[Rfam]
RNA sequence: AGAAAGAAGGAAGUUGAAUUCAUUUAGAAAAGAGAAUUCCAAAUGAGCUUAAUUUCUUUUUUUCU
Number, nucleotide and partner (000 for none) at each position: 001a065002g064003a063004a062005a061006g060007a059008a058009g057010g056011a055012a054013g053014u052015u051016g050017a049018a000019u047020u046021c045022a044023u043024u042025u041026a000027g039028a038029a037030a000031a000032g000033a000034g000035a000036a000037u029038u028039c027040c000041a025042a024043a023044u022045g021046a020047g019048c000049u017050u016051a015052a014053u013054u012055u011056c010057u009058u008059u007060u006061u005062u004063u003064c002065u001
Shown here is a 65-nucleotide sequence from Pongo pygmaeus, a member of the family "mir-1252 microRNA precursor family". NCBI's taxonomy places the organism under Eukaryota, Opisthokonta, Primates, Hominidae, Pongo. It is one of the family's seed sequences.